[Rfam]
Nucleotides: 084
Stems, first nucleotide, its partner, number of pairs: 001083007010026003029043004060076005
Number, partner (000 for none) and nucleotide at each position: 001083g002082g003081g004080c005079g006078g007077u008000u009000a010026c011025c012024c013000a014000a015000g016000u017000g018000g019000c020000c021000a022000a023000a024012g025011g026010g027000a028000c029043c030042u031041g032040a033000c034000u035000g036000u037000a038000a039000a040032u041031c042030a043029g044000c045000u046000g047000g048000c049000a050000g051000a052000c053000u054000g055000c056000c057000u058000u059000c060076g061075g062074a063073g064072g065000u066000u067000c068000g069000a070000a071000u072064c073063c074062u075061u076060c077007a078006c079005c080004g081003c082002c083001c084000a